The record is a 100-nucleotide RNA from Lysinibacillus composti, which matches "Purine riboswitch aptamer" in Rfam.
It scores 80 bits against the family's covariance model.
A reference for the family is Batey et al. (2004), "Structure of a natural guanine-responsive riboswitch complexed with the metabolite hypoxanthine", Nature.
The organism belongs to Lysinibacillus, within Bacteria.
From the family's description: Riboswitches are metabolite binding domains within certain messenger RNAs that serve as precision sensors for their corresponding targets.
Pairs were carried over by alignment from the consensus structure, which is taken from published work.

[Rfam]
RNA sequence: AUUACGUAAAGACGUAACCCACAUAUAUGCUAGAGAAUAUGGCUCUAGUGUUUCUACCCGACACCGUAAACGUCGGACUAUGCGGGAAAGCAACUUUUGG
Number, nucleotide and partner (000 for none) at each position: 001a000002u000003u000004a000005c000006g000007u000008a000009a000010a000011g000012a000013c000014g000015u000016a000017a000018c086019c085020c084021a000022c082023a081024u080025a079026u000027a000028u000029g049030c048031u047032a046033g045034a044035g043036a000037a000038u000039a000040u000041g000042g000043c035044u034045c033046u032047a031048g030049u029050g000051u000052u000053u000054c000055u000056a000057c000058c076059c075060g074061a073062c072063a000064c000065c000066g000067u000068a000069a000070a000071c000072g062073u061074c060075g059076g058077a000078c000079u025080a024081u023082g022083c000084g020085g019086g018087a000088a000089a000090g000091c000092a000093a000094c000095u000096u000097u000098u000099g000100g000